[Rfam]
RNA sequence: AUUCCUACUAUUAUUGCCGUGUCCAUAAUUCAUAUAAUGAUAGGCAGUAA
Number, nucleotide and partner (000 for none) at each position: 001a000002u000003u000004c000005c000006u000007a000008c000009u000010a000011u050012u049013a048014u047015u046016g045017c044018c043019g000020u000021g000022u000023c000024c000025a000026u000027a000028a000029u000030u000031c000032a000033u000034a000035u000036a000037a000038u000039g000040a000041u000042a000043g018044g017045c016046a015047g014048u013049a012050a011
RNA: malK-II RNA